The family of this 357-nucleotide sequence from Aminobacter sp. J15 is "Alphaproteobacteria transfer-messenger RNA". Taxonomically the source falls in Aminobacter (Bacteria, Pseudomonadati, Pseudomonadota, Hyphomicrobiales). The match comes from Rfam's covariance-model search (313 bits). By type it is a non-coding RNA gene. Bacterial tmRNA, also known as 10Sa RNA or SsrA, is named for its dual tRNA and mRNA-like properties. Its Rfam clan is "tRNA clan".
[Rfam]
RNA sequence: ACCCUUCCAAUCGCGCACGAGACUACCUAUAUUCGCGGCGUCGGUUUCGGCCGACUAUGGAAAUAAACGGGCGGUGUAAUAAGCCUAUCGGACCCGGGGGCGGUACCCGGCGCCUCCACCAGGAACAGCGGUUCGCCGCUGUUGCUGAUGGGGGCGAAACAGGAUCGACGAGGGUGUAAAGAUCGACCUUUUUCCCGGCAUUGUACCACCGUUAUCGGGCUACCCUUAUAGUUGCCAACGACAACUAUGCUGAGGCACGUCUCGCUGCUUAAUGCGGCGCGAUAGUCUCGAAUCAAGCCCUGUGGGAUAGCACCUUCAGGCGGGGUUCGGAGGUACCUGGCAACAGAAACCUCCACU
Numbered sequence: 001a002c003c004c005u006u007c008c009a010a011u012c013g014c015g016c017a018c019g020a021g022a023c024u025a026c027c028u029a030u031a032u033u034c035g036c037g038g039c040g041u042c043g044g045u046u047u048c049g050g051c052c053g054a055c056u057a058u059g060g061a062a063a064u065a066a067a068c069g070g071g072c073g074g075u076g077u078a079a080u081a082a083g084c085c086u087a088u089c090g091g092a093c094c095c096g097g098g099g100g101c102g103g104u105a106c107c108c109g110g111c112g113c114c115u116c117c118a119c120c121a122g123g124a125a126c127a128g129c130g131g132u133u134c135g136c137c138g139c140u141g142u143u144g145c146u147g148a149u150g151g152g153g154g155c156g157a158a159a160c161a162g163g164a165u166c167g168a169c170g171a172g173g174g175u176g177u178a179a180a181g182a183u184c185g186a187c188c189u190u191u192u193u194c195c196c197g198g199c200a201u202u203g204u205a206c207c208a209c210c211g212u213u214a215u216c217g218g219g220c221u222a223c224c225c226u227u228a229u230a231g232u233u234g235c236c237a238a239c240g241a242c243a244a245c246u247a248u249g250c251u252g253a254g255g256c257a258c259g260u261c262u263c264g265c266u267g268c269u270u271a272a273u274g275c276g277g278c279g280c281g282a283u284a285g286u287c288u289c290g291a292a293u294c295a296a297g298c299c300c301u302g303u304g305g306g307a308u309a310g311c312a313c314c315u316u317c318a319g320g321c322g323g324g325g326u327u328c329g330g331a332g333g334u335a336c337c338u339g340g341c342a343a344c345a346g347a348a349a350c351c352u353c354c355a356c357u
Stems, first nucleotide, its partner, number of pairs: 040055005059195005069188002072185004084174003088171003094110005111156007196211003201222001203220001206218002323338004329354006